[Rfam]
RNA: RT-14 RNA
RNA sequence: CUCUGGUUAAUAAGCGAGAUUAUAGGUGUUUACGGACACCUAUACGGUGCCCCAGAACCAAAGGAGUCCUGUUCCUUCCUUGAAAGAGGUAAAAACAAAAGAGGUGUGGUGUAUUUAGUAGGAAUCGAAAGAUACACCUCACC
Numbered sequence: 001c002u003c004u005g006g007u008u009a010a011u012a013a014g015c016g017a018g019a020u021u022a023u024a025g026g027u028g029u030u031u032a033c034g035g036a037c038a039c040c041u042a043u044a045c046g047g048u049g050c051c052c053c054a055g056a057a058c059c060a061a062a063g064g065a066g067u068c069c070u071g072u073u074c075c076u077u078c079c080u081u082g083a084a085a086g087a088g089g090u091a092a093a094a095a096c097a098a099a100a101g102a103g104g105u106g107u108g109g110u111g112u113a114u115u116u117a118g119u120a121g122g123a124a125u126c127g128a129a130a131g132a133u134a135c136a137c138c139u140c141a142c143c
Stems, first nucleotide, its partner, number of pairs: 003055004014050002021044009078089004103143004108138008121126001